The record is a 303-nucleotide RNA sequence from Solanum tuberosum, which matches "Plant signal recognition particle RNA" in Rfam. The family's RNA type in Rfam is non-coding RNA gene. Pairs were carried over by alignment from the consensus structure, which is taken from published work. The source organism's lineage runs through Eukaryota, Viridiplantae, Pentapetalae, lamiids and Solanum.
[Rfam]
RNA sequence: GCCGAGCCUUGUAACGUGGGCUUGUAACCUAAGUUGGGGCAACAAUGUGGUGGAAUGUUAGACUGAUCUUGAAGGCUGGGCUUGGCAGGCUAAUCUCUGGCUUGCCCUAUCCAAGCAUGGAGUUGGGCCAAGUGGUCUAUACGAAAGUAUAGGUUGCUUUGCCUUUAGAGUGGGGCGGACUGCGUGAGGCUGGUUUCACAGAGCAACGAAUAGUCUCCGCUCUGUGUAGUGGAAGGAAAACGGGCCGGUGCUUUCCAAGUUCAAUAAACACCUGAUGGGCUGUCUAAUUAAACCACCACUUUU
Numbered sequence: 001g002c003c004g005a006g007c008c009u010u011g012u013a014a015c016g017u018g019g020g021c022u023u024g025u026a027a028c029c030u031a032a033g034u035u036g037g038g039g040c041a042a043c044a045a046u047g048u049g050g051u052g053g054a055a056u057g058u059u060a061g062a063c064u065g066a067u068c069u070u071g072a073a074g075g076c077u078g079g080g081c082u083u084g085g086c087a088g089g090c091u092a093a094u095c096u097c098u099g100g101c102u103u104g105c106c107c108u109a110u111c112c113a114a115g116c117a118u119g120g121a122g123u124u125g126g127g128c129c130a131a132g133u134g135g136u137c138u139a140u141a142c143g144a145a146a147g148u149a150u151a152g153g154u155u156g157c158u159u160u161g162c163c164u165u166u167a168g169a170g171u172g173g174g175g176c177g178g179a180c181u182g183c184g185u186g187a188g189g190c191u192g193g194u195u196u197c198a199c200a201g202a203g204c205a206a207c208g209a210a211u212a213g214u215c216u217c218c219g220c221u222c223u224g225u226g227u228a229g230u231g232g233a234a235g236g237a238a239a240a241c242g243g244g245c246c247g248g249u250g251c252u253u254u255c256c257a258a259g260u261u262c263a264a265u266a267a268a269c270a271c272c273u274g275a276u277g278g279g280c281u282g283u284c285u286a287a288u289u290a291a292a293c294c295a296c297c298a299c300u301u302u303u
Stems, first nucleotide, its partner, number of pairs: 001040003004023006028037002044302002047299007056290002058287006065280001068278002073273003078262008087253003091250002097248008106236002110233004115227009125164004130159013165170001172217005181210001183208003190201003
Dot-bracket structure: (((((((((........))))))....((......)))))...((.(((((((..((((((((.(..((...(((..((((((((.(((.((....((((((((.((..((((.(((((((((.((((.(((((((((((((....))))))))))))).))))(....).(((((....(.(((....(((......)))....))).)..))))).)))))))))..)))).))....))))))))))))).))))))))........)))...)).).)))))).))..))))))).)).